[Rfam]
RNA sequence: CGGCGGGGUGAUCGCCCCGCCGGACCGACGCCGGUACCUCGUACGGCCGGCGCGG
Dot-bracket structure: ((((((((......))))))))..(((.(((((((..........))))))))))
RNA: L17-Actino-Proteobacteria ribosomal protein leader